The record is a 107-nucleotide RNA sequence, which matches "Hairpin ribozyme 1 from viruses-like metatranscriptomes" in Rfam.
Pairs were carried over by alignment from the consensus structure, which is taken from published work.
RNA sequence: UUUCUGUCCCACAGUCCGUGCGUAAAGCAAUGCCAAGCGGCUAGGAUGUGGCGAAGAAAUGGGAGGGAAACACAUCAGCGUAGCGACCUGAUGGAAAAUUAACUCCC
Numbered sequence: 001u002u003u004c005u006g007u008c009c010c011a012c013a014g015u016c017c018g019u020g021c022g023u024a025a026a027g028c029a030a031u032g033c034c035a036a037g038c039g040g041c042u043a044g045g046a047u048g049u050g051g052c053g054a055a056g057a058a059a060u061g062g063g064a065g066g067g068a069a070a071c072a073c074a075u076c077a078g079c080g081u082a083g084c085g086a087c088c089u090g091a092u093g094g095a096a097a098a099u100u101a102a103c104u105c106c107c
Stems, first nucleotide, its partner, number of pairs: 001059004009051005015046001032041003061107005073093006